[Rfam]
RNA sequence: UUGCAUGUAGUGGCCCUUGGGCUGUAAUUCCAUCUCUCUCUGCUGUGGGGAGUUUGGACGGAUUCUGAACAUGCUACAUUAACUGGAGUUAUCAGGGCCGCCAGUCUCUAAAGCACAAGCUGAGUCGGUAGUAUAAAACUCCAACACAG
Numbered sequence: 001u002u003g004c005a006u007g008u009a010g011u012g013g014c015c016c017u018u019g020g021g022c023u024g025u026a027a028u029u030c031c032a033u034c035u036c037u038c039u040c041u042g043c044u045g046u047g048g049g050g051a052g053u054u055u056g057g058a059c060g061g062a063u064u065c066u067g068a069a070c071a072u073g074c075u076a077c078a079u080u081a082a083c084u085g086g087a088g089u090u091a092u093c094a095g096g097g098c099c100g101c102c103a104g105u106c107u108c109u110a111a112a113g114c115a116c117a118a119g120c121u122g123a124g125u126c127g128g129u130a131g132u133a134u135a136a137a138a139c140u141c142c143a144a145c146a147c148a149g
Stems, first nucleotide, its partner, number of pairs: 003074006030056001032054001034052004085142004097129002101124001102122004107117001